[Rfam]
Nucleotides: 102
Stems, first nucleotide, its partner, number of pairs: 010089004015084002018081002021078010031067004037061008
Number, partner (000 for none) and nucleotide at each position: 001000c002000g003000g004000a005000u006000c007000g008000g009000g010089u011088g012087g013086g014000u015084c016083g017000a018081g019080g020000c021078c022077u023076c024075g025074g026073c027072c028071c029070g030069a031067c032066g033065c034064g035000a036000c037061c038060c039059u040058g041057g042056c043055g044054u045000a046000c047000u048000u049000c050000c051000c052000c053000a054044a055043c056042g057041c058040c059039a060038g061037g062000u063000g064034c065033g066032u067031g068000a069030u070029c071028g072027g073026g074025u075024c076023g077022a078021g079000a080019c081018c082000c083016c084015g085000c086013c087012c088011c089010a090000u091000c092000g093000g094000a095000c096000a097000c098000g099000c100000c101000g102000g

Shown here is a 102-nucleotide RNA from Gordonia mangrovi, a member of the family "mraW RNA". The family has 45 seed sequences and 851 matches in Rfam 15.1. By type it is a cis-regulatory element.